[Rfam]
RNA sequence: GGCCUAAACCCACCUGAUGGUGGGCAUGGCAGAAAAGACCUCAACAGCAUUAAGCUCUUCGUCAGAGCGCUGUUGAGGCUGUAGGUCGAAAGACUUGCAGGAGUCGAAAGAGGCUUC
Numbered sequence: 001g002g003c004c005u006a007a008a009c010c011c012a013c014c015u016g017a018u019g020g021u022g023g024g025c026a027u028g029g030c031a032g033a034a035a036a037g038a039c040c041u042c043a044a045c046a047g048c049a050u051u052a053a054g055c056u057c058u059u060c061g062u063c064a065g066a067g068c069g070c071u072g073u074u075g076a077g078g079c080u081g082u083a084g085g086u087c088g089a090a091a092g093a094c095u096u097g098c099a100g101g102a103g104u105c106g107a108a109a110g111a112g113g114c115u116u117c
Stems, first nucleotide, its partner, number of pairs: 002030003009024006039078010054068005080099008100117006
LOOT RNA: a 117-nucleotide sequence.